Description
Shown here is a 438-nucleotide RNA from Stemphylium lycopersici, a member of the family "RNase MRP".
RNA sequence: UCCUCGCUCGAAGAAUCGCAACGAAGCUUACGCACAGAGCGCAUUCACUGCGUCUCUUUUCUCACGCUUUGGGAGAAAGUCCCCGGACAUCGAUCUUCGCGAUCGCACUUUCAGAAACGAACCGCCAUAGAAGCCGCAGCUUCCAUCACCGCCUACGACGCUUUCCGCCUCUCUCUAUCCGCUUGCACUCUUUUUCGUCAGCUUUCCCAAGGCUGUGGGUGGAGGGGCUGGCACCUGGAUGAUGAUAUGAGUCCGUUGGCUACCUUGCUCGCAUGCCUAGGCCUUGUUGAGGGAUGAGAGGAAGAGGGAGAUGUCGGGAAGCGCCAGGUAUGGGGGGUCAUCUCGUCCAGUUCAUGGUUAUGCGAUUGCCUUCCCUGCGCUUUGGUAAUACAAGGUGCUCUGGGGGGUAACUCAAUGGGGCUUAUUCUUGAGGCGAGG
Numbered sequence: 001u002c003c004u005c006g007c008u009c010g011a012a013g014a015a016u017c018g019c020a021a022c023g024a025a026g027c028u029u030a031c032g033c034a035c036a037g038a039g040c041g042c043a044u045u046c047a048c049u050g051c052g053u054c055u056c057u058u059u060u061c062u063c064a065c066g067c068u069u070u071g072g073g074a075g076a077a078a079g080u081c082c083c084c085g086g087a088c089a090u091c092g093a094u095c096u097u098c099g100c101g102a103u104c105g106c107a108c109u110u111u112c113a114g115a116a117a118c119g120a121a122c123c124g125c126c127a128u129a130g131a132a133g134c135c136g137c138a139g140c141u142u143c144c145a146u147c148a149c150c151g152c153c154u155a156c157g158a159c160g161c162u163u164u165c166c167g168c169c170u171c172u173c174u175c176u177a178u179c180c181g182c183u184u185g186c187a188c189u190c191u192u193u194u195u196c197g198u199c200a201g202c203u204u205u206c207c208c209a210a211g212g213c214u215g216u217g218g219g220u221g222g223a224g225g226g227g228c229u230g231g232c233a234c235c236u237g238g239a240u241g242a243u244g245a246u247a248u249g250a251g252u253c254c255g256u257u258g259g260c261u262a263c264c265u266u267g268c269u270c271g272c273a274u275g276c277c278u279a280g281g282c283c284u285u286g287u288u289g290a291g292g293g294a295u296g297a298g299a300g301g302a303a304g305a306g307g308g309a310g311a312u313g314u315c316g317g318g319a320a321g322c323g324c325c326a327g328g329u330a331u332g333g334g335g336g337g338u339c340a341u342c343u344c345g346u347c348c349a350g351u352u353c354a355u356g357g358u359u360a361u362g363c364g365a366u367u368g369c370c371u372u373c374c375c376u377g378c379g380c381u382u383u384g385g386u387a388a389u390a391c392a393a394g395g396u397g398c399u400c401u402g403g404g405g406g407g408u409a410a411c412u413c414a415a416u417g418g419g420g421c422u423u424a425u426u427c428u429u430g431a432g433g434c435g436a437g438g
Base pairs, nucleotide, nucleotide: 002438003437004436005435006434007433008431009430010429011428014367015366016365017364018363019362022071023070024069025068026067027066037056038055039054040052041051042050043049077423078422079421081420082419083418084417253336254335256333257332258331262329263328264327265326274323275322276321369407370406371405372404373403374402

Source information:
Its family is annotated with ribonuclease MRP activity, ribonuclease MRP complex and rRNA processing in the Gene Ontology. The family has 66 seed sequences and 3,510 matches in Rfam 15.1. Taxonomically the source falls in Stemphylium (Eukaryota, Dikarya, Ascomycota, saccharomyceta).